[Rfam]
RNA: Small Cajal body specific RNA 21
Organism: Carlito syrichta
RNA sequence: UGACUCAGUUUCCUGGGGGGUGACUGUAGCCUUCCCCACCUCCCCUCAGCUGAGCCUAGAAUAGAGAGGCUAGGUGCGUCCCCUGUGGGAGAGGCAUUGAAUAAAGUGAGGAUCCUUGCCUGAACCAUCCUAGCUCACAUUU
Numbered sequence: 001u002g003a004c005u006c007a008g009u010u011u012c013c014u015g016g017g018g019g020g021u022g023a024c025u026g027u028a029g030c031c032u033u034c035c036c037c038a039c040c041u042c043c044c045c046u047c048a049g050c051u052g053a054g055c056c057u058a059g060a061a062u063a064g065a066g067a068g069g070c071u072a073g074g075u076g077c078g079u080c081c082c083c084u085g086u087g088g089g090a091g092a093g094g095c096a097u098u099g100a101a102u103a104a105a106g107u108g109a110g111g112a113u114c115c116u117u118g119c120c121u122g123a124a125c126c127a128u129c130c131u132a133g134c135u136c137a138c139a140u141u142u
Stems, first nucleotide, its partner, number of pairs: 002056001004054004015044008066136002069134002072131003079123002087116003